A member of the RNA family "mir-9229 microRNA precursor family" from Myotis lucifugus, 76 nucleotides long. It scores 73 bits against the family's covariance model. The base pairs follow the family's consensus structure, which was predicted with RNAalifold.
RNA sequence: GAGAUACCCCUAUGGAGCAGGACUUGCUUCAGUGGGACUUUGGUGUUAAUUGAGUCUGCCCCUUGAGUGUGUUGCU
Numbered sequence: 001g002a003g004a005u006a007c008c009c010c011u012a013u014g015g016a017g018c019a020g021g022a023c024u025u026g027c028u029u030c031a032g033u034g035g036g037a038c039u040u041u042g043g044u045g046u047u048a049a050u051u052g053a054g055u056c057u058g059c060c061c062c063u064u065g066a067g068u069g070u071g072u073u074g075c076u
Stems, first nucleotide, its partner, number of pairs: 001075001003073005009067001011065002014062002017059003021056003029053005035047002037044002